[Rfam]
Shown here is a 94-nucleotide RNA sequence from Medicago truncatula, a member of the family "MIR2587 microRNA precursor family". It scores 85 bits against the family's covariance model. The source organism's lineage runs through Eukaryota, eudicotyledons, Fabales, Trifolieae and Medicago. A reference for the family is Lelandais-Briere et al. (2009), "Genome-wide Medicago truncatula small RNA analysis revealed novel microRNAs and isoforms differentially regulated in roots and nodules", Plant Cell. Its family is annotated with miRNA-mediated post-transcriptional gene silencing and RISC complex in the Gene Ontology.
RNA sequence: GUGUCAUGGUCAUUGUUGACCGUUCAUAUAAUCUAUGCAAUUGCUUUGCAGCUUAUGCAGGGAUUAUACGACGGUCAGCAGAGACCCUUGACAU
Numbered sequence: 001g002u003g004u005c006a007u008g009g010u011c012a013u014u015g016u017u018g019a020c021c022g023u024u025c026a027u028a029u030a031a032u033c034u035a036u037g038c039a040a041u042u043g044c045u046u047u048g049c050a051g052c053u054u055a056u057g058c059a060g061g062g063a064u065u066a067u068a069c070g071a072c073g074g075u076c077a078g079c080a081g082a083g084a085c086c087c088u089u090g091a092c093a094u
Stems, first nucleotide, its partner, number of pairs: 001094006008086004013081012027068008036059004043052001